[Rfam]
RNA sequence: ACUGCUUCUCAGCCUGUUGGCUAAGAUCGAGUAUAGUAGCUGUUGUUAUCAGUUUAAUAUCUGAUACAUCCUCUACUGGAGGACAAUGUAUUAAAUAUAUUUUUGGAGCAGAGAGAUAGAAUAGGAGCUUGCUUUGUCCACUCCAUGCAUUGACCUGGGAUAGCAGUAUCUCCAGGAAUGAUGCACCCAAC
Dot-bracket structure: ......(((.((((....)))).)))....................((((((........))))))..((((((...)))))).............................(((...(....((((....)))).)...)))...((((((.((((((...........))))))..)))))).......

The record is a 191-nucleotide RNA sequence from Microcebus murinus, which matches "U2 spliceosomal RNA" in Rfam. Rfam links the family to the GO terms U2 snRNP, mRNA branch site recognition and pre-mRNA branch point binding. Lineage of the source: Eukaryota > Bilateria > Chordata > Strepsirrhini > Microcebus. The match comes from Rfam's covariance-model search (146 bits). From the family's description: U2 is a small nuclear RNA (snRNA) component of the spliceosome (involved in pre-mRNA splicing).